Overview:
This 46-nucleotide RNA from Planctomycetaceae bacterium SCGC AG-212-F19 belongs to the Rfam family "Acido-Lenti-1 RNA". NCBI's taxonomy places the organism under Bacteria, Pseudomonadati, Planctomycetia, Planctomycetales, Planctomycetaceae. The match comes from Rfam's covariance-model search (56 bits). Rfam 15.1 lists 2,607 matches to the family in 171 species.
[Rfam]
RNA sequence: CCCAGGGCUUGCGCCCUGGGCUAUUGACUUUCGCCCCUUCGGGGCU
Dot-bracket structure: ((((((((....))))))))............(((((...))))).